[Rfam]
RNA sequence: AACAGGACAAUGACAAAUCAGAUUUUUCUUUCCGAUUUUUAACUUUUUUCUACUGAAAAAAUUUAAAUCCAAUUAAAAAUAUUAAAAAUUAGGAGAAAAAUAUGACUUGUCAUUAUCUUAUU
Numbered sequence: 001a002a003c004a005g006g007a008c009a010a011u012g013a014c015a016a017a018u019c020a021g022a023u024u025u026u027u028c029u030u031u032c033c034g035a036u037u038u039u040u041a042a043c044u045u046u047u048u049u050c051u052a053c054u055g056a057a058a059a060a061a062u063u064u065a066a067a068u069c070c071a072a073u074u075a076a077a078a079a080u081a082u083u084a085a086a087a088a089u090u091a092g093g094a095g096a097a098a099a100a101u102a103u104g105a106c107u108u109g110u111c112a113u114u115a116u117c118u119u120a121u122u
Stems, first nucleotide, its partner, number of pairs: 001122002004119004009114008018105003022101001024100004029095004034090006041083002045079004
Dot-bracket structure: ((.((((.((((((((.(((.(.((((.((((.((((((.((..((((...........................))))..)).)))))).)))).))))).))).)))))))).)))).))